The record is a 54-nucleotide RNA from Pullulanibacillus pueri, which matches "Bacillus-plasmid RNA" in Rfam.
RNA sequence: UGUGUCAACGGUACCGGACCGAAGGGAGGAUAAGGAGUUGAUACACACGCUACA
Numbered sequence: 001u002g003u004g005u006c007a008a009c010g011g012u013a014c015c016g017g018a019c020c021g022a023a024g025g026g027a028g029g030a031u032a033a034g035g036a037g038u039u040g041a042u043a044c045a046c047a048c049g050c051u052a053c054a
Base pairs, nucleotide, nucleotide: 001045002044003043004042005041006040007039008038009037